[Rfam]
RNA sequence: CAGGCCGGACAGACAGUCGCCGCGCGGCGCAGGCUGCGGGGAGGAAAGUCCGGGCUCCGAAGAGCAGAAUGCCGGCUAACGGCCGGGCGCGGUAACGCGACGGAAAGUGGAACAGAAAGCAUAACCGCCGAUGGUUCUCCGCCGCAGCCUUUUGCGUCAUUACAAGUAGGGCGCAAAAGGCUGCGGCGGGAACACAGGUAAGGGUGAAAUGGUGCGGUAAGAGCGCACCGUGCACUUGGCAACAAGGCGCAGCAGGCCAAACCCCAUUCGGAGCAAGACCAAACAGAACGCAACGACGCUGCUCGCCGAGCGUUCGGGUAGGUUGCUGGAGCGCAUCAGCAAUGGUGCGCCUAGAGGAAUGACUGUCCGACGACAGAACCCGGCUUACCGUCCGACCAGUGUG
Numbered sequence: 001c002a003g004g005c006c007g008g009a010c011a012g013a014c015a016g017u018c019g020c021c022g023c024g025c026g027g028c029g030c031a032g033g034c035u036g037c038g039g040g041g042a043g044g045a046a047a048g049u050c051c052g053g054g055c056u057c058c059g060a061a062g063a064g065c066a067g068a069a070u071g072c073c074g075g076c077u078a079a080c081g082g083c084c085g086g087g088c089g090c091g092g093u094a095a096c097g098c099g100a101c102g103g104a105a106a107g108u109g110g111a112a113c114a115g116a117a118a119g120c121a122u123a124a125c126c127g128c129c130g131a132u133g134g135u136u137c138u139c140c141g142c143c144g145c146a147g148c149c150u151u152u153u154g155c156g157u158c159a160u161u162a163c164a165a166g167u168a169g170g171g172c173g174c175a176a177a178a179g180g181c182u183g184c185g186g187c188g189g190g191a192a193c194a195c196a197g198g199u200a201a202g203g204g205u206g207a208a209a210u211g212g213u214g215c216g217g218u219a220a221g222a223g224c225g226c227a228c229c230g231u232g233c234a235c236u237u238g239g240c241a242a243c244a245a246g247g248c249g250c251a252g253c254a255g256g257c258c259a260a261a262c263c264c265c266a267u268u269c270g271g272a273g274c275a276a277g278a279c280c281a282a283a284c285a286g287a288a289c290g291c292a293a294c295g296a297c298g299c300u301g302c303u304c305g306c307c308g309a310g311c312g313u314u315c316g317g318g319u320a321g322g323u324u325g326c327u328g329g330a331g332c333g334c335a336u337c338a339g340c341a342a343u344g345g346u347g348c349g350c351c352u353a354g355a356g357g358a359a360u361g362a363c364u365g366u367c368c369g370a371c372g373a374c375a376g377a378a379c380c381c382g383g384c385u386u387a388c389c390g391u392c393c394g395a396c397c398a399g400u401g402u403g
Base pairs, nucleotide, nucleotide: 001399003397004396006394007393008392009391010390012367013366014365015364016363017362018361020041021040023038024037025036026035027034028033046386047385048384050383051382052381053380054379055273056272057271058270062304063303064302065301067269068268069267070266071265072086073085074084075083076082087101088099089098090097091096102264103263107262108261109258110257125203126202127199128198129197132194133193135191136190137189138188211229212228213227214226215225216224230253231251232250233249235247236245237244238243277324278323279322280321286315287314288313289312290311291310298306299305331350332349333348334347335346336345337344338343
This 403-nucleotide sequence from Neisseria chenwenguii belongs to the Rfam family "Bacterial RNase P class A".
NCBI's taxonomy places the organism under Bacteria, Pseudomonadati, Neisseriales, Neisseriaceae, Neisseria.
Rfam links the family to the GO terms dimeric ribonuclease P complex, tRNA processing and ribonuclease P activity.
It is annotated as a ribozyme.
It scores 284 bits against the family's covariance model.